[Rfam]
RNA: Flavo-1 RNA
Organism: Treponema denticola
RNA sequence: CUCGGACAGCGAUUGAAGCAGAAAUCCUUUUUGCGGUGUGUUUAAGCAAAAAGCAAGCUCUGACCGGAGGGAAGAGCCUUGCCUGUGAAGACAAAUGCAGCAAAAAGAUUGGAGCGGAAAGCGCGGUGUUCA
Numbered sequence: 001c002u003c004g005g006a007c008a009g010c011g012a013u014u015g016a017a018g019c020a021g022a023a024a025u026c027c028u029u030u031u032u033g034c035g036g037u038g039u040g041u042u043u044a045a046g047c048a049a050a051a052a053g054c055a056a057g058c059u060c061u062g063a064c065c066g067g068a069g070g071g072a073a074g075a076g077c078c079u080u081g082c083c084u085g086u087g088a089a090g091a092c093a094a095a096u097g098c099a100g101c102a103a104a105a106a107g108a109u110u111g112g113a114g115c116g117g118a119a120a121g122c123g124c125g126g127u128g129u130u131c132a
Stems, first nucleotide, its partner, number of pairs: 009124003013120002018115002023110004029105005039097005